[Rfam]
RNA: Manganese Mn2+ riboswitch aptamer (yybP-ykoY)
RNA sequence: CCGCGGCGUCAUUGGGGAGUAGCCGCCCGGUCACCACCGGGGGACAUGUCAACACACUUUUCCGGUUCCGGAAAUGGCAUGUCCAGUGUUCGCACCUGGCAAGACCAUUGACCGCCGACACACCGAGCGCGGGCCGGGUGUGGUGGCGGUCUUCGGUCAUCCAUCGGCCCCUGA
Numbered sequence: 001c002c003g004c005g006g007c008g009u010c011a012u013u014g015g016g017g018a019g020u021a022g023c024c025g026c027c028c029g030g031u032c033a034c035c036a037c038c039g040g041g042g043g044a045c046a047u048g049u050c051a052a053c054a055c056a057c058u059u060u061u062c063c064g065g066u067u068c069c070g071g072a073a074a075u076g077g078c079a080u081g082u083c084c085a086g087u088g089u090u091c092g093c094a095c096c097u098g099g100c101a102a103g104a105c106c107a108u109u110g111a112c113c114g115c116c117g118a119c120a121c122a123c124c125g126a127g128c129g130c131g132g133g134c135c136g137g138g139u140g141u142g143g144u145g146g147c148g149g150u151c152u153u154c155g156g157u158c159a160u161c162c163a164u165c166g167g168c169c170c171c172u173g174a
Base pairs, nucleotide, nucleotide: 027040028039029038042084043083044082045081046080047079048078049077050076051075059074060073061072062071063070089174090173